[Rfam]
RNA sequence: UCCUCACCAAAGCUGCGUUUCUUUGCUUCCACACUGACAAAGGCCUUGUUUAAACGCUCGCCUUUGUCCACCACACUUGCAAAUGAGAAAUUCGGAGUAAUCUUCACCAUUUACACCCACCUUGCCAAUCUCUUCGGAGUGCAGUAAGCUCUGGGUCACUGCCUGCGAGGGCCUGACGUGACACGUCUGCACCUGGCAUCAGAAACUCAGAAUGUCUUGACCUCUAUCCGCUUCGGCGGUCAAGGGGAAGAGAUCGCGUUCUAUGGGAGCCGGUGCGAAGAUUGUGUGCGAGUCUAUGACUUGCGAUACUUGAGUGCAAUACGCAGCAUUUCUUCCUUAACAGAAGUUAUAAUUCGAUUCCGAUUACUCAGGUGAGGA
Numbered sequence: 001u002c003c004u005c006a007c008c009a010a011a012g013c014u015g016c017g018u019u020u021c022u023u024u025g026c027u028u029c030c031a032c033a034c035u036g037a038c039a040a041a042g043g044c045c046u047u048g049u050u051u052a053a054a055c056g057c058u059c060g061c062c063u064u065u066g067u068c069c070a071c072c073a074c075a076c077u078u079g080c081a082a083a084u085g086a087g088a089a090a091u092u093c094g095g096a097g098u099a100a101u102c103u104u105c106a107c108c109a110u111u112u113a114c115a116c117c118c119a120c121c122u123u124g125c126c127a128a129u130c131u132c133u134u135c136g137g138a139g140u141g142c143a144g145u146a147a148g149c150u151c152u153g154g155g156u157c158a159c160u161g162c163c164u165g166c167g168a169g170g171g172c173c174u175g176a177c178g179u180g181a182c183a184c185g186u187c188u189g190c191a192c193c194u195g196g197c198a199u200c201a202g203a204a205a206c207u208c209a210g211a212a213u214g215u216c217u218u219g220a221c222c223u224c225u226a227u228c229c230g231c232u233u234c235g236g237c238g239g240u241c242a243a244g245g246g247g248a249a250g251a252g253a254u255c256g257c258g259u260u261c262u263a264u265g266g267g268a269g270c271c272g273g274u275g276c277g278a279a280g281a282u283u284g285u286g287u288g289c290g291a292g293u294c295u296a297u298g299a300c301u302u303g304c305g306a307u308a309c310u311u312g313a314g315u316g317c318a319a320u321a322c323g324c325a326g327c328a329u330u331u332c333u334u335c336c337u338u339a340a341c342a343g344a345a346g347u348u349a350u351a352a353u354u355c356g357a358u359u360c361c362g363a364u365u366a367c368u369c370a371g372g373u374g375a376g377g378a
Stems, first nucleotide, its partner, number of pairs: 001378004008372001014326001019321001022083004036068009093362005102280004161172004175187004189276005195270001209262007328350002332346003
The family of this 378-nucleotide RNA from Aureobasidium subglaciale is "Nuclear RNase P". The source organism's lineage runs through Eukaryota, Fungi, Dothideomycetidae, Dothideales and Aureobasidium subglaciale.